[Rfam]
RNA sequence: CCUGUCCGGCAUCUGCCCACAGGUCGGGAUGUGAUCUCACUCGAGAUUGAACCAGGAA
Numbered sequence: 001c002c003u004g005u006c007c008g009g010c011a012u013c014u015g016c017c018c019a020c021a022g023g024u025c026g027g028g029a030u031g032u033g034a035u036c037u038c039a040c041u042c043g044a045g046a047u048u049g050a051a052c053c054a055g056g057a058a
Base pairs, nucleotide, nucleotide: 001023002022003021004020005019026053027052033048034047035046036045037044
RNA: eL15-Euryarchaeota ribosomal protein leader